[Rfam]
RNA sequence: UCUCUUCAAGGCGAUGGAUUUCCGCCGGGUCGUCUGACCGAACCGCCCUAGCAAGGGCCGAUGAUUCCUACUUGGCG
Numbered sequence: 001u002c003u004c005u006u007c008a009a010g011g012c013g014a015u016g017g018a019u020u021u022c023c024g025c026c027g028g029g030u031c032g033u034c035u036g037a038c039c040g041a042a043c044c045g046c047c048c049u050a051g052c053a054a055g056g057g058c059c060g061a062u063g064a065u066u067c068c069u070a071c072u073u074g075g076c077g
Stems, first nucleotide, its partner, number of pairs: 010026004016068003020064002045058004
Fluoride riboswitch aptamer (crcB RNA motif): a 77-nucleotide sequence from Sphingomonas metalli. Pairs were carried over by alignment from the consensus structure, which is taken from published work. NCBI's taxonomy places the organism under Bacteria, Pseudomonadati, Pseudomonadota, Sphingomonadaceae, Sphingomonas. A search with the family's covariance model found it, with a score of 44 bits.